[Rfam]
RNA sequence: ACGGGCUGUUGAUCUGUUCCGUUCCCCCGCACGGAUCCGAUCAAUGGAAGGGCGCCGGCGCAAGCCGGCGCCUUUUUCCGUUC
Dot-bracket structure: .........(((((.(.(................).).))))).....((((((((.((....)).)))))))).........
Shown here is an 83-nucleotide sequence from Xanthobacter tagetidis, a member of the family "Bradyrhizobiaceae sRNA BjrC68". It is annotated as a small RNA. It scores 39 bits against the family's covariance model. Taxonomically the source falls in Xanthobacter (Bacteria, Pseudomonadota, Alphaproteobacteria, Xanthobacteraceae).